Record summary:
This 164-nucleotide RNA sequence from Aliikangiella marina belongs to the Rfam family "Molybdenum/Tungsten riboswitch aptamer (Moco RNA motif)". Its family is annotated with regulation of gene expression, molybdenum ion binding and tungstate binding in the Gene Ontology.
RNA sequence: UGUAAUUAACAACUCCGAGCUUUGUCUAACUAAGUUCAUGAUCAGUGUAUAAGUUUUCAUACGCGAUUAAGAAUAAGUUGAUUUAGCCGCAGUUCACACUGCCAGGGUUAGCCGAGAAAUUUGCUAGCCUCCCGUAUUUGGAAAGGAGCAUUAUUUGAACGAGU
Numbered sequence: 001u002g003u004a005a006u007u008a009a010c011a012a013c014u015c016c017g018a019g020c021u022u023u024g025u026c027u028a029a030c031u032a033a034g035u036u037c038a039u040g041a042u043c044a045g046u047g048u049a050u051a052a053g054u055u056u057u058c059a060u061a062c063g064c065g066a067u068u069a070a071g072a073a074u075a076a077g078u079u080g081a082u083u084u085a086g087c088c089g090c091a092g093u094u095c096a097c098a099c100u101g102c103c104a105g106g107g108u109u110a111g112c113c114g115a116g117a118a119a120u121u122u123g124c125u126a127g128c129c130u131c132c133c134g135u136a137u138u139u140g141g142a143a144a145g146g147a148g149c150a151u152u153a154u155u156u157g158a159a160c161g162a163g164u
Base pairs, nucleotide, nucleotide: 003158013148014147015146016145019087020086021085024082025081026080028079029078030077034074035073036072037071089102090101091100092099093098105130106129107128108127109126110125111124112123114121115120131141132140